Rfam assigns this 297-nucleotide sequence from Arctia plantaginis to the family "Nuclear RNase P". Rfam classes the family as a ribozyme. Lineage of the source: Eukaryota > Heteroneura > Erebidae > Arctiinae > Arctia.
Nucleotides: 297
Stems, first nucleotide, its partner, number of pairs: 001297004009289001012255006021059005035049005068281005077231004097111005112128006129227007148213003257268004
Number, partner (000 for none) and nucleotide at each position: 001297u002296c003295a004294a005000u006000g007000u008000u009289a010000a011000u012255c013254u014253c015252g016251u017250a018000c019000u020000u021059g022058g023057g024056g025055c026000g027000c028000a029000c030000a031000c032000a033000c034000u035049g036048a037047g038046u039045g040000c041000c042000u043000g044000u045039c046038g047037c048036u049035c050000u051000c052000u053000c054000c055025g056024c057023c058022c059021c060000g061000g062000g063000a064000a065000g066000g067000u068281c069280u070279g071278a072277g073000u074000a075000a076000a077231g078230g079229u080228c081000u082000u083000u084000g085000u086000g087000a088000u089000u090000u091000a092000a093000a094000a095000c096000a097111c098110a099109u100108u101107c102000u103000a104000g105000a106000c107101g108100g109099a110098u111097g112128c113127u114126u115125c116124c117123u118000u119000u120000a121000c122000a123117a124116g125115g126114a127113a128112g129227g130226c131225a132224g133223g134222g135221g136000a137000a138000c139000c140000a141000g142000a143000a144000a145000u146000u147000a148213c149212a150211g151000u152000g153000u154000a155000a156000u157000a158000u159000u160000a161000a162000g163000c164000c165000a166000g167000u168000g169000a170000u171000g172000c173000c174000a175000g176000g177000c178000c179000u180000g181000u182000g183000g184000g185000g186000c187000u188000a189000g190000g191000u192000g193000a194000a195000g196000g197000u198000g199000u200000a201000a202000a203000u204000g205000u206000u207000a208000c209000a210000g211150c212149u213148g214000u215000u216000g217000g218000a219000a220000a221135c222134c223133c224132c225131u226130g227129u228080g229079a230078c231077c232000a233000g234000c235000a236000u237000u238000u239000u240000a241000a242000g243000u244000a245000c246000a247000a248000u249000a250017u251016a252015c253014g254013a255012g256000a257268u258267g259266a260265c261000u262000a263000u264000g265260g266259u267258c268257a269000c270000a271000a272000c273000u274000c275000a276000a277072u278071u279070c280069a281068g282000a283000c284000u285000a286000g287000u288000c289009u290000u291000u292000c293000a294004u295003u296002g297001a